RNA: Small nucleolar RNA SNORD107
Organism: Erinaceus europaeus
Nucleotides: 074
Stems, first nucleotide, its partner, number of pairs: 001074004
Number, partner (000 for none) and nucleotide at each position: 001074g002073a003072u004071u005000c006000a007000u008000g009000a010000u011000g012000a013000c014000a015000u016000u017000g018000g019000a020000c021000c022000u023000u024000g025000u026000a027000u028000g029000a030000c031000u032000a033000a034000a035000a036000u037000g038000a039000c040000a041000u042000c043000a044000a045000a046000a047000u048000u049000u050000g051000a052000g053000c054000u055000u056000a057000g058000a059000a060000u061000u062000a063000u064000a065000c066000u067000c068000u069000g070000a071004a072003a073002u074001c